[Rfam]
A member of the RNA family "chrB-b RNA", 50 nucleotides long.
Pairs were carried over by alignment from the consensus structure, which is taken from published work.
The sequence is in the family's curated seed alignment.

RNA sequence: UGGGGACGUCGCAGCCUCCCCGUUAAAUGGCCACCCCAUUCAAGCGCUGC
Number, nucleotide and partner (000 for none) at each position: 001u022002g021003g020004g019005g018006a017007c000008g000009u000010c000011g050012c049013a048014g047015c046016c000017u006018c005019c004020c003021c002022g001023u000024u000025a000026a040027a039028u038029g037030g036031c000032c000033a000034c000035c000036c030037c029038a028039u027040u026041c000042a000043a000044g000045c000046g015047c014048u013049g012050c011